[Rfam]
Shown here is a 108-nucleotide sequence from Mauremys mutica, a member of the family "Small nucleolar RNA U6-53/MBII-28". The pairing is the family consensus, mapped onto this sequence. Gene Ontology terms of the family: RNA processing and nucleolus. By type it is a C/D-box small nucleolar RNA. It scores 65 bits against the family's covariance model.

RNA sequence: UGCCUGUGAUGACUUGCCAUGCUAAUACCGACAUCUCCCUGGCAGUGCAUGUGGCUCUGCCCUGGGGAGAAAUGAGUUAAACUCGCUUCUCAUGGAGACCUGAGGUGC
Numbered sequence: 001u002g003c004c005u006g007u008g009a010u011g012a013c014u015u016g017c018c019a020u021g022c023u024a025a026u027a028c029c030g031a032c033a034u035c036u037c038c039c040u041g042g043c044a045g046u047g048c049a050u051g052u053g054g055c056u057c058u059g060c061c062c063u064g065g066g067g068a069g070a071a072a073u074g075a076g077u078u079a080a081a082c083u084c085g086c087u088u089c090u091c092a093u094g095g096a097g098a099c100c101u102g103a104g105g106u107g108c
Stems, first nucleotide, its partner, number of pairs: 001107004043059003047055001